[Rfam]
Nucleotides: 140
Stems, first nucleotide, its partner, number of pairs: 020052005026047002034042001083115004088110005094104001129140004
Number, partner (000 for none) and nucleotide at each position: 001000a002000u003000c004000c005000u006000u007000u008000c009000g010000c011000a012000g013000u014000g015000g016000c017000a018000g019000u020052a021051u022050u023049g024048u025000a026047g027046c028000a029000c030000a031000u032000g033000a034042g035000a036000u037000u038000g039000a040000u041000c042034c043000g044000u045000g046027g047026c048024a049023c050022g051021a052020u053000u054000a055000u056000u057000g058000c059000u060000a061000g062000u063000u064000u065000a066000a067000a068000g069000c070000u071000u072000u073000a074000c075000c076000c077000a078000a079000u080000a081000c082000u083115c084114c085113a086112c087000c088110u089109u090108g091107a092106c093000c094104a095000c096000u097000u098000g099000a100000a101000a102000u103000a104094u105000a106092g107091u108090c109089a110088g111000c112086g113085u114084g115083g116000c117000a118000a119000u120000u121000u122000u123000u124000g125000a126000u127000a128000g129140u130139u131138u132137c133000c134000a135000a136000a137132g138131a139130g140129a
A member of the RNA family "U4 spliceosomal RNA" from Mola mola, 140 nucleotides long. Rfam links the family to the GO terms U4 snRNP and spliceosomal tri-snRNP complex assembly. The family is grouped with related families in Rfam's "U4 clan". It scores 79 bits against the family's covariance model. The family has 177 seed sequences and 32,178 matches in Rfam 15.1.